[Rfam]
RNA sequence: AGCCGUGCGGUGAGCACAGAGCGAACUAUUCUUUCGCCUUUUACUAAAGAAUACCGUGUGCUCGCCGCUCUUUAGCGGCAUACGCCUAUUUUUGGAGAGGUACCUUUUUUAGUGCCUC
Numbered sequence: 001a002g003c004c005g006u007g008c009g010g011u012g013a014g015c016a017c018a019g020a021g022c023g024a025a026c027u028a029u030u031c032u033u034u035c036g037c038c039u040u041u042u043a044c045u046a047a048a049g050a051a052u053a054c055c056g057u058g059u060g061c062u063c064g065c066c067g068c069u070c071u072u073u074a075g076c077g078g079c080a081u082a083c084g085c086c087u088a089u090u091u092u093u094g095g096a097g098a099g100g101u102a103c104c105u106u107u108u109u110u111a112g113u114g115c116c117u118c
Stems, first nucleotide, its partner, number of pairs: 003078004008067011027053008098117006
This 118-nucleotide RNA sequence from Rhamnella rubrinervis belongs to the Rfam family "U5 spliceosomal RNA". The family's RNA type in Rfam is spliceosomal small nuclear RNA. Gene Ontology terms of the family: spliceosomal tri-snRNP complex assembly and U5 snRNP. On this family, see Zwieb, Nucleic Acids Res 1997: "The uRNA database". The source organism's lineage runs through Eukaryota, Streptophyta, Streptophytina, Mesangiospermae and Rhamnella. It scores 90 bits against the family's covariance model.